[Rfam]
RNA sequence: AACAUGGACCCGGGGUCCAUGGACCCCCUUUUGGACCGGGUCCAUGGACCCGGUCCAUUUUAGGGGUCCAUGGACCCGGUCCAAAAGGGGGGUCCAUGGACCCCGGGGUCCAUGUU
Numbered sequence: 001a002a003c004a005u006g007g008a009c010c011c012g013g014g015g016u017c018c019a020u021g022g023a024c025c026c027c028c029u030u031u032u033g034g035a036c037c038g039g040g041u042c043c044a045u046g047g048a049c050c051c052g053g054u055c056c057a058u059u060u061u062a063g064g065g066g067u068c069c070a071u072g073g074a075c076c077c078g079g080u081c082c083a084a085a086a087g088g089g090g091g092g093u094c095c096a097u098g099g100a101c102c103c104c105g106g107g108g109u110c111c112a113u114g115u116u
Stems, first nucleotide, its partner, number of pairs: 001116011013104001016100014030085011042073007050066002
Rfam assigns this 116-nucleotide sequence from Desmophyllum pertusum to the family "mir-63 microRNA precursor family". The organism belongs to Desmophyllum, within Eukaryota. Its family is annotated with miRNA-mediated post-transcriptional gene silencing and RISC complex in the Gene Ontology. For this family Rfam cites "Repertoire and evolution of miRNA genes in four divergent nematode species" (de Wit et al., Genome Res, 2009).